[Rfam]
RNA sequence: CUAUAUGUACCCUGUAGAUCCGAAUUUGUGUUGUGGCCGCAGUCGCAAAUUCGUGUCUUGGGGAGCAUGUAGU
Numbered sequence: 001c002u003a004u005a006u007g008u009a010c011c012c013u014g015u016a017g018a019u020c021c022g023a024a025u026u027u028g029u030g031u032u033g034u035g036g037c038c039g040c041a042g043u044c045g046c047a048a049a050u051u052c053g054u055g056u057c058u059u060g061g062g063g064a065g066c067a068u069g070u071a072g073u
Stems, first nucleotide, its partner, number of pairs: 002071006010063003016058004021053010
This 73-nucleotide sequence from Denticeps clupeoides belongs to the Rfam family "mir-10 microRNA precursor family". Rfam 15.1 lists 3,853 matches to the family in 853 species. The match comes from Rfam's covariance-model search (66 bits). The family's consensus secondary structure was predicted with PFOLD.